[Rfam]
Nucleotides: 065
Stems, first nucleotide, its partner, number of pairs: 014036005022028002039064010
Number, partner (000 for none) and nucleotide at each position: 001000g002000a003000c004000c005000u006000u007000g008000c009000g010000u011000c012000g013000a014036c015035a016034a017033u018032c019000u020000g021000a022028u023027c024000g025000a026000c027023g028022g029000u030000c031000a032018g033017a034016u035015u036014g037000a038000u039064g040063g041062c042061u043060g044059g045058u046057g047056g048055c049000c050000u051000g052000u053000g054000u055048g056047c057046c058045a059044c060043c061042g062041g063040c064039c065000u
Pseudomonas sRNA P26: a 65-nucleotide RNA sequence from Halopseudomonas bauzanensis.
A reference for the family is Livny et al. (2006), "Identification of 17 Pseudomonas aeruginosa sRNAs and prediction of sRNA-encoding genes in 10 diverse pathogens using the bioinformatic tool sRNAPredict2", Nucleic Acids Res.
The family's consensus secondary structure was predicted with RNAalifold.
Taxonomically the source falls in Halopseudomonas (Bacteria, Pseudomonadota, Gammaproteobacteria, Pseudomonadales).
The match comes from Rfam's covariance-model search (51 bits).
About the family: This small RNA (sRNA) was computationally identified in the genome of the opportunistic pathogen Pseudomonas aeruginosa and its expression verified by northern blot analysis. P26 is conserved across many Gammaproteobacteria species and appears to be consistently located between the DNA directed RNA polymerase (beta subunit) and 50S ribosomal protein L7/L12 genes.